This 136-nucleotide sequence from Streptococcus pyogenes belongs to the Rfam family "Ribosomal protein L10 leader".
RNA sequence: GUUUUGAUAAAAAACUGACCUAAGACAGCAGGGGAGCAUGCUCAUAAUAUUCCUGCCGAGGCACAAAACGUGAUUAAAGAAAAUAACGUAUUUGUACUUUCGUGUCUAGGUUUAGGUGCGAUUUUUUUGUACCUAG
Numbered sequence: 001g002u003u004u005u006g007a008u009a010a011a012a013a014a015c016u017g018a019c020c021u022a023a024g025a026c027a028g029c030a031g032g033g034g035a036g037c038a039u040g041c042u043c044a045u046a047a048u049a050u051u052c053c054u055g056c057c058g059a060g061g062c063a064c065a066a067a068a069c070g071u072g073a074u075u076a077a078a079g080a081a082a083a084u085a086a087c088g089u090a091u092u093u094g095u096a097c098u099u100u101c102g103u104g105u106c107u108a109g110g111u112u113u114a115g116g117u118g119c120g121a122u123u124u125u126u127u128u129g130u131a132c133c134u135a136g
Stems, first nucleotide, its partner, number of pairs: 028056006034043003100121009
Notes
Its family is annotated with regulation of gene expression in the Gene Ontology. Pairs were carried over by alignment from the consensus structure, which was predicted with CMfinder.